[Rfam]
RNA sequence: GAUUGCGAUGAUGACCAUGGAAAUAUUCAAGCUCAACAGACCGGAAUGCAGGGGAUUUUUUUCUCCUGCUUGUGUCGACAACACUUGGCUGAGCAAUC
Number, nucleotide and partner (000 for none) at each position: 001g098002a097003u096004u095005g094006c093007g000008a000009u000010g000011a000012u000013g000014a000015c000016c000017a000018u000019g000020g000021a000022a000023a000024u000025a000026u000027u000028c000029a000030a000031g000032c000033u000034c000035a000036a000037c000038a000039g000040a000041c000042c000043g000044g000045a000046a000047u000048g000049c000050a000051g000052g000053g000054g000055a000056u000057u000058u000059u000060u000061u000062u000063c000064u000065c000066c000067u000068g000069c000070u000071u000072g000073u000074g000075u000076c000077g000078a000079c000080a000081a000082c000083a000084c000085u000086u000087g000088g000089c000090u000091g000092a000093g006094c005095a004096a003097u002098c001
RNA: Small nucleolar RNA Z107/R87
Organism: Carnegiea gigantea